Notes
Shown here is a 97-nucleotide sequence from Oceanospirillum multiglobuliferum, a member of the family "Bacterial small signal recognition particle RNA".
RNA sequence: CGUCGGUCCCCUCGCAACGGAAACUUGUGAACCUGGUCAGGCCCGGAAGGGAGCAGCCACAGCAAGCGGAUCGUGUGCCGAGGUGUGGCUGGCGGGG
Numbered sequence: 001c002g003u004c005g006g007u008c009c010c011c012u013c014g015c016a017a018c019g020g021a022a023a024c025u026u027g028u029g030a031a032c033c034u035g036g037u038c039a040g041g042c043c044c045g046g047a048a049g050g051g052a053g054c055a056g057c058c059a060c061a062g063c064a065a066g067c068g069g070a071u072c073g074u075g076u077g078c079c080g081a082g083g084u085g086u087g088g089c090u091g092g093c094g095g096g097g
Base pairs, nucleotide, nucleotide: 004091005090006089007088008087010083011082012081013080014079015075017074018073019072020071024066025065026064027063028062034059035058036057037056042051043050044049
By type it is a non-coding RNA gene. The base pairs follow the family's consensus structure, which is taken from published work. Lineage of the source: Bacteria > Pseudomonadati > Pseudomonadota > Oceanospirillaceae > Oceanospirillum.